[Rfam]
RNA sequence: GCGCAGUGCGGAGGGCCACCUCGGUGUCACUUAUGGCAGGAGUCGAGGGGCCGCUGCUUUGAGCGCGGCCCCCGGCUGGGCGCUGCAUCCAAUUUUCUGAGCACACCGGGCGAAAGUCCCCGGGCGACGGGGCAGAGAGUGCCAGCCCGCAAGGGCAGGACCCCCACGUGCCGUUCUUACGGCCGCGGGGCAGCUCGCCAUAGCAACAGUUAUGUGGCCAGUGGGGACGCAACCCACCAACACAACGGGGCUUACUCCCGCACUGACG
Numbered sequence: 001g002c003g004c005a006g007u008g009c010g011g012a013g014g015g016c017c018a019c020c021u022c023g024g025u026g027u028c029a030c031u032u033a034u035g036g037c038a039g040g041a042g043u044c045g046a047g048g049g050g051c052c053g054c055u056g057c058u059u060u061g062a063g064c065g066c067g068g069c070c071c072c073c074g075g076c077u078g079g080g081c082g083c084u085g086c087a088u089c090c091a092a093u094u095u096u097c098u099g100a101g102c103a104c105a106c107c108g109g110g111c112g113a114a115a116g117u118c119c120c121c122g123g124g125c126g127a128c129g130g131g132g133c134a135g136a137g138a139g140u141g142c143c144a145g146c147c148c149g150c151a152a153g154g155g156c157a158g159g160a161c162c163c164c165c166a167c168g169u170g171c172c173g174u175u176c177u178u179a180c181g182g183c184c185g186c187g188g189g190g191c192a193g194c195u196c197g198c199c200a201u202a203g204c205a206a207c208a209g210u211u212a213u214g215u216g217g218c219c220a221g222u223g224g225g226g227a228c229g230c231a232a233c234c235c236a237c238c239a240a241c242a243c244a245a246c247g248g249g250g251c252u253u254a255c256u257c258c259c260g261c262a263c264u265g266a267c268g
Stems, first nucleotide, its partner, number of pairs: 002268002004265008014219006021109007036093001039090003114253003118250004131143004145156004158191001164188002167185002171182004221237005